[Rfam]
RNA: Ribosomal protein L10 leader
RNA sequence: AUAAAAAUGAACAUCAUACCGUAGACAGUAGGUGCAUUGGUUGCUUAAUUUCCUACCGAGGUAAGCUUAUAGAUUCAGUGUAACUGACAUCAAUAAUGCCCUCAUGUCUACAUGGGGGCUUUUUAUAUUCGCUU
Numbered sequence: 001a002u003a004a005a006a007a008u009g010a011a012c013a014u015c016a017u018a019c020c021g022u023a024g025a026c027a028g029u030a031g032g033u034g035c036a037u038u039g040g041u042u043g044c045u046u047a048a049u050u051u052c053c054u055a056c057c058g059a060g061g062u063a064a065g066c067u068u069a070u071a072g073a074u075u076c077a078g079u080g081u082a083a084c085u086g087a088c089a090u091c092a093a094u095a096a097u098g099c100c101c102u103c104a105u106g107u108c109u110a111c112a113u114g115g116g117g118g119c120u121u122u123u124u125a126u127a128u129u130c131g132c133u134u
Base pairs, nucleotide, nucleotide: 028056029055030054031053032052034044035043036042098119099118100117101116102115103114104113105112106111